A member of the RNA family "c-di-GMP-I riboswitch aptamer" from Thermoanaerobacteraceae bacterium SP2, 88 nucleotides long. Gene Ontology term of the family: cyclic-di-GMP binding. The source organism's lineage runs through Bacteria, Bacillati, Bacillota, Thermoanaerobacterales and Thermoanaerobacteraceae. Pairs were carried over by alignment from the consensus structure, which is taken from published work.
RNA sequence: AUAGUUUUUUGGCAAACUCCCCGAAAGGGGCGGGCGCAAAGCCAUGGGCCUACGGCAUUGAACAUGCUAUGGCUGCCAGGUUGCAACU
Numbered sequence: 001a002u003a004g005u006u007u008u009u010u011g012g013c014a015a016a017c018u019c020c021c022c023g024a025a026a027g028g029g030g031c032g033g034g035c036g037c038a039a040a041g042c043c044a045u046g047g048g049c050c051u052a053c054g055g056c057a058u059u060g061a062a063c064a065u066g067c068u069a070u071g072g073c074u075g076c077c078a079g080g081u082u083g084c085a086a087c088u
Base pairs, nucleotide, nucleotide: 012037013036017032019030020029021028022027040082041081042080043079045078046077047076048073049072050071055067056066057065058064